[Rfam]
RNA: antisense RNA of dnaA mRNA
RNA sequence: UUUGGCGUUGGGACGCUCGGCCAGCAAGCGGUUACCCACAGCAUGCAUCAGGUGGGUCUUGCCCAGGCCGACACCGCCGUA
Numbered sequence: 001u002u003u004g005g006c007g008u009u010g011g012g013a014c015g016c017u018c019g020g021c022c023a024g025c026a027a028g029c030g031g032u033u034a035c036c037c038a039c040a041g042c043a044u045g046c047a048u049c050a051g052g053u054g055g056g057u058c059u060u061g062c063c064c065a066g067g068c069c070g071a072c073a074c075c076g077c078c079g080u081a
Stems, first nucleotide, its partner, number of pairs: 005042002009038004017031002020029002051078004056074002061072001063070001